[Rfam]
RNA sequence: CCAGACGGCUGGACGGUCGCUGCCUUGCUUUGCAAGGGGGAGGAAAGUCCGGGCUCCACGGAAGAACGGUGCCGGUUAACGACCGGCGAGGGUGACCUUAGGGAAAGUGCCACAGAAAACAGACCGCCUUCCGGGUUCUGCCCCGUGGGAAACCGUGGGACAGCACUGAAGGUAAGGGUGAAACGGUGCGGUAAGAGCGCACCGCUCCUCCGGUAACGGAGGAGGCACGGUAAACCCCACCGGGAGCAAGACCGAAUAGGAGCGGCAGAAACCCGCAAGGGUUUCAGGGGUUCUUUCGCCCCGUCGCUCGGGUUGGUUGCGUGAGGCCCGCUGCAAGGCGGGUCCCAGAGGAAUGACCGUCCACGCCCCUUUUGGGGCCGGACAGAACCCGGCUUACAGGCCGUCUGGCAUC
Numbered sequence: 001c002c003a004g005a006c007g008g009c010u011g012g013a014c015g016g017u018c019g020c021u022g023c024c025u026u027g028c029u030u031u032g033c034a035a036g037g038g039g040g041a042g043g044a045a046a047g048u049c050c051g052g053g054c055u056c057c058a059c060g061g062a063a064g065a066a067c068g069g070u071g072c073c074g075g076u077u078a079a080c081g082a083c084c085g086g087c088g089a090g091g092g093u094g095a096c097c098u099u100a101g102g103g104a105a106a107g108u109g110c111c112a113c114a115g116a117a118a119a120c121a122g123a124c125c126g127c128c129u130u131c132c133g134g135g136u137u138c139u140g141c142c143c144c145g146u147g148g149g150a151a152a153c154c155g156u157g158g159g160a161c162a163g164c165a166c167u168g169a170a171g172g173u174a175a176g177g178g179u180g181a182a183a184c185g186g187u188g189c190g191g192u193a194a195g196a197g198c199g200c201a202c203c204g205c206u207c208c209u210c211c212g213g214u215a216a217c218g219g220a221g222g223a224g225g226c227a228c229g230g231u232a233a234a235c236c237c238c239a240c241c242g243g244g245a246g247c248a249a250g251a252c253c254g255a256a257u258a259g260g261a262g263c264g265g266c267a268g269a270a271a272c273c274c275g276c277a278a279g280g281g282u283u284u285c286a287g288g289g290g291u292u293c294u295u296u297c298g299c300c301c302c303g304u305c306g307c308u309c310g311g312g313u314u315g316g317u318u319g320c321g322u323g324a325g326g327c328c329c330g331c332u333g334c335a336a337g338g339c340g341g342g343u344c345c346c347a348g349a350g351g352a353a354u355g356a357c358c359g360u361c362c363a364c365g366c367c368c369c370u371u372u373u374g375g376g377g378c379c380g381g382a383c384a385g386a387a388c389c390c391g392g393c394u395u396a397c398a399g400g401c402c403g404u405c406u407g408g409c410a411u412c
Stems, first nucleotide, its partner, number of pairs: 001408010011397001012361007020040002023037006045395003049392005054246004063296003067242005072086005087101001088099004102237002107235002109231003124177002126173006133166001185203006204226001205224008250318004260309006288302003292298001325344008

Shown here is a 412-nucleotide RNA from Acetobacter senegalensis, a member of the family "Bacterial RNase P class A".
Ribonuclease P (RNase P) is a ubiquitous endoribonuclease, found in archaea, bacteria and eukarya as well as chloroplasts and mitochondria.
The match comes from Rfam's covariance-model search (322 bits).